[Rfam]
RNA: 23S methyl RNA motif
Organism: Streptococcus zalophi
RNA sequence: CAUUCACUGAUUUAAAUCAGAUCUGUUGUGAUUUAAGUUUGUGAAUCACCAUCAACCACGAUAUCUGCCGAGCCUAGACUCCGGGUUUCGUGGUUUUUUU
Numbered sequence: 001c002a003u004u005c006a007c008u009g010a011u012u013u014a015a016a017u018c019a020g021a022u023c024u025g026u027u028g029u030g031a032u033u034u035a036a037g038u039u040u041g042u043g044a045a046u047c048a049c050c051a052u053c054a055a056c057c058a059c060g061a062u063a064u065c066u067g068c069c070g071a072g073c074c075u076a077g078a079c080u081c082c083g084g085g086u087u088u089c090g091u092g093g094u095u096u097u098u099u100u
Base pairs, nucleotide, nucleotide: 002046003045004044005043006042007041009039010038011037012036013035014034015033016032017031018030019029054095055094056093057092058091059090060089061088063086064085065084066083067082070081071080072079